[Rfam]
RNA: DUF805b RNA
Organism: Mucilaginibacter gotjawali
RNA sequence: CCCCCGGAAGCCGAAAAGGGUGAAAAGAGUAGGCA
Numbered sequence: 001c002c003c004c005c006g007g008a009a010g011c012c013g014a015a016a017a018g019g020g021u022g023a024a025a026a027g028a029g030u031a032g033g034c035a
Stems, first nucleotide, its partner, number of pairs: 003020003010034003